The family of this 127-nucleotide RNA from Desulfosporosinus acididurans is "SAM riboswitch aptamer (S box leader)".
RNA sequence: CUCUUAUCCGGAGUGGUGGAGGGACUAGCCCAAUGAAACCCGGCAACCCGCUUUGCUGUGACAAUGUUUGUCAGCGCAAGGUAUGGUGCUAAUUCUUGCAGGAGUGAAUUCUUCUGAUAGAUAAGAG
Dot-bracket structure: ((((((((....(.(((...(((.[.[[)))......))))((((.((..((..........................))....))))))...(]].]((((((......))))))..)))))))))

Rfam links the family to the GO term regulation of gene expression. The family's consensus secondary structure is taken from published work. The family is grouped with related families in Rfam's "SAM clan". The organism belongs to Desulfosporosinus, within Bacteria.